[Rfam]
RNA sequence: AUAUUAUUCAUAUAGAUAUCUCGUAUAAGUCUGGGAAUAUGGCCCGGAAGUCUCUACCUGAACACCGUUAAUGUUCGGACUACGAGGGAAUACUACCUAAAC
Number, nucleotide and partner (000 for none) at each position: 001a000002u000003a000004u000005u000006a000007u000008u000009c000010a000011u000012a000013u000014a000015g000016a000017u000018a000019u087020c086021u085022c084023g083024u082025a081026u000027a000028a000029g000030u048031c047032u046033g045034g044035g043036a000037a000038u000039a000040u000041g000042g000043c035044c034045c033046g032047g031048a030049a000050g000051u000052c000053u000054c000055u000056a000057c000058c078059u077060g076061a075062a074063c073064a072065c000066c000067g000068u000069u000070a000071a000072u064073g063074u062075u061076c060077g059078g058079a000080c000081u025082a024083c023084g022085a021086g020087g019088g000089a000090a000091u000092a000093c000094u000095a000096c000097c000098u000099a000100a000101a000102c000
Rfam assigns this 102-nucleotide RNA from Paenibacillus crassostreae to the family "Purine riboswitch aptamer". On this family, see Batey et al., Nature 2004: "Structure of a natural guanine-responsive riboswitch complexed with the metabolite hypoxanthine". The organism belongs to Paenibacillus, within Bacteria. Gene Ontology term of the family: purine nucleobase biosynthetic process.